[Rfam]
RNA sequence: AGCUGUAAUGGCUCAACGGGAAGAAACGACUUCAAUCUUUCUUACCACCCCUGCUGUUGGCAACAACCCAACCAUCGGUGCCCGGUUCGAAUCUCGUGGUGGCCACCCACUCGCACAGGUAACUUGCGAUUUGCUGCGCGUGGCCUUGAGACCGCUUGGAUACCGCUUCAGCCGAGCAAUCGGGCAGAGCGACCGAGCCCAUGGGAUGGCGAGUCCGGACUACAUCGAUGUUUGUUGGUGGAGUGUGAGGGAAGAGUUAUGGGGUUGUGACUUUCUUU
Numbered sequence: 001a002g003c004u005g006u007a008a009u010g011g012c013u014c015a016a017c018g019g020g021a022a023g024a025a026a027c028g029a030c031u032u033c034a035a036u037c038u039u040u041c042u043u044a045c046c047a048c049c050c051c052u053g054c055u056g057u058u059g060g061c062a063a064c065a066a067c068c069c070a071a072c073c074a075u076c077g078g079u080g081c082c083c084g085g086u087u088c089g090a091a092u093c094u095c096g097u098g099g100u101g102g103c104c105a106c107c108c109a110c111u112c113g114c115a116c117a118g119g120u121a122a123c124u125u126g127c128g129a130u131u132u133g134c135u136g137c138g139c140g141u142g143g144c145c146u147u148g149a150g151a152c153c154g155c156u157u158g159g160a161u162a163c164c165g166c167u168u169c170a171g172c173c174g175a176g177c178a179a180u181c182g183g184g185c186a187g188a189g190c191g192a193c194c195g196a197g198c199c200c201a202u203g204g205g206a207u208g209g210c211g212a213g214u215c216c217g218g219a220c221u222a223c224a225u226c227g228a229u230g231u232u233u234g235u236u237g238g239u240g241g242a243g244u245g246u247g248a249g250g251g252a253a254g255a256g257u258u259a260u261g262g263g264g265u266u267g268u269g270a271c272u273u274u275c276u277u278u
Stems, first nucleotide, its partner, number of pairs: 001013003018276006026268009035258001037256001038253006046245003050241002055065004069234003073230008082218004087212003091207009101145001103143002107136001109131001111129005117124002146150001154198006164191005173182003

Overview: This 278-nucleotide sequence from Aureobasidium musti belongs to the Rfam family "Fungal signal recognition particle RNA". The family is grouped with related families in Rfam's "SRP clan". A reference for the family is Wild et al. (2002), "Towards the structure of the mammalian signal recognition particle", Curr Opin Struct Biol. The base pairs follow the family's consensus structure, which is taken from published work. By type it is a non-coding RNA gene.